Description:
A member of the RNA family "serC leader" from Litoreibacter roseus, 52 nucleotides long. Taxonomically the source falls in Litoreibacter (Bacteria, Pseudomonadota, Rhodobacterales, Roseobacteraceae). This family is a putative regulatory RNA structure that is found upstream of the serC-serA operon in some alpha-proteobacteria. The final stem of the structure overlaps the ribosome binding site of the serC reading frame. A reference for the family is Corbino et al. (2005), "Evidence for a second class of S-adenosylmethionine riboswitches and other regulatory RNA motifs in alpha-proteobacteria", Genome Biol.

RNA sequence: CGGUGGGACACCCUUCCCCAACGAAGGGCAUAUAUCUGUAAGGAUACUAAAA
Numbered sequence: 001c002g003g004u005g006g007g008a009c010a011c012c013c014u015u016c017c018c019c020a021a022c023g024a025a026g027g028g029c030a031u032a033u034a035u036c037u038g039u040a041a042g043g044a045u046a047c048u049a050a051a052a
Stems, first nucleotide, its partner, number of pairs: 011028006033046005